Shown here is a 78-nucleotide RNA from Leptobrachium leishanense, a member of the family "Small nucleolar RNA SNORD53/SNORD92".

[Rfam]
RNA sequence: GCGCAGUGAUGAUCAGAGAAUGGUUUCGCAAACAUCUGAAAUGCCGUGACAGAGCAUCUCUCUUGGCUGUCUGAGCGC
Numbered sequence: 001g002c003g004c005a006g007u008g009a010u011g012a013u014c015a016g017a018g019a020a021u022g023g024u025u026u027c028g029c030a031a032a033c034a035u036c037u038g039a040a041a042u043g044c045c046g047u048g049a050c051a052g053a054g055c056a057u058c059u060c061u062c063u064u065g066g067c068u069g070u071c072u073g074a075g076c077g078c
Stems, first nucleotide, its partner, number of pairs: 001078004
It is annotated as a C/D-box small nucleolar RNA. Its family is annotated with nucleolus and RNA processing in the Gene Ontology. A search with the family's covariance model found it, with a score of 64 bits. The literature on the family includes a 1996 paper in Cell by Kiss-Laszlo et al., "Site-specific ribose methylation of preribosomal RNA: a novel function for small nucleolar RNAs".